[Rfam]
RNA sequence: UGUGACACCCAUCAAAGGAGUAGUCCCCCACCUUAGAGCUACUUUACCAUUUUCCGAAUUC
Numbered sequence: 001u002g003u004g005a006c007a008c009c010c011a012u013c014a015a016a017g018g019a020g021u022a023g024u025c026c027c028c029c030a031c032c033u034u035a036g037a038g039c040u041a042c043u044u045u046a047c048c049a050u051u052u053u054c055c056g057a058a059u060u061c
Stems, first nucleotide, its partner, number of pairs: 017045008026036001
Plastid-psbN 5UTR RNA: a 61-nucleotide RNA sequence from Salix dunnii. A reference for the family is Richter et al. (2023), "Retrograde signaling in plants: A critical review focusing on the GUN pathway and beyond", Plant Commun. The base pairs follow the family's consensus structure, which was predicted with LocARNA.